The family of this 97-nucleotide RNA sequence from Cloacibacterium normanense is "SAM-I/IV (S-adenosyl methionine) riboswitch aptamer".
RNA sequence: GCCUAUUAUCAGGAACCUCUACGGGAGGUAGCAACCUGCAACAACAAGCAAGGUGCUAAAGCGAUAAGCCAAACUUUUUGGAAAAAAUGUUGUCUAU
Numbered sequence: 001g002c003c004u005a006u007u008a009u010c011a012g013g014a015a016c017c018u019c020u021a022c023g024g025g026a027g028g029u030a031g032c033a034a035c036c037u038g039c040a041a042c043a044a045c046a047a048g049c050a051a052g053g054u055g056c057u058a059a060a061g062c063g064a065u066a067a068g069c070c071a072a073a074c075u076u077u078u079u080g081g082a083a084a085a086a087a088u089g090u091u092g093u094c095u096a097u
Stems, first nucleotide, its partner, number of pairs: 006067005015029006030057003035053003038049002044091001069081004

On this family, see Weinberg et al., RNA 2008: "The aptamer core of SAM-IV riboswitches mimics the ligand-binding site of SAM-I riboswitches".